[Rfam]
RNA: mir-34 microRNA precursor family
Organism: Cinclus mexicanus
RNA sequence: GGUUUGCAGGCAGUGCUGUUAGGUGAUUGUGUCCAAAAUUCCACAAUCACUAAUUCCACUGCCACCAAAAC
Numbered sequence: 001g002g003u004u005u006g007c008a009g010g011c012a013g014u015g016c017u018g019u020u021a022g023g024u025g026a027u028u029g030u031g032u033c034c035a036a037a038a039u040u041c042c043a044c045a046a047u048c049a050c051u052a053a054u055u056c057c058a059c060u061g062c063c064a065c066c067a068a069a070a071c
Stems, first nucleotide, its partner, number of pairs: 003069004009063002012060004018054005024049008